[Rfam]
RNA sequence: AGGUCAUUUCAAAGAGAGCUUUUUGGAUUAAACCAGGAGCUCUUAACGCUGUGACCAAAGAUGAAGUUCUCCCUGAGAUGUGAUCAGCACUGAGUAGUGCUGUGUAUUCUUGGGAUGAGACAAGA
Numbered sequence: 001a002g003g004u005c006a007u008u009u010c011a012a013a014g015a016g017a018g019c020u021u022u023u024u025g026g027a028u029u030a031a032a033c034c035a036g037g038a039g040c041u042c043u044u045a046a047c048g049c050u051g052u053g054a055c056c057a058a059a060g061a062u063g064a065a066g067u068u069c070u071c072c073c074u075g076a077g078a079u080g081u082g083a084u085c086a087g088c089a090c091u092g093a094g095u096a097g098u099g100c101u102g103u104g105u106a107u108u109c110u111u112g113g114g115a116u117g118a119g120a121c122a123a124g125a
Stems, first nucleotide, its partner, number of pairs: 002056006014044008023036001025034002068118002072114001075111004085102007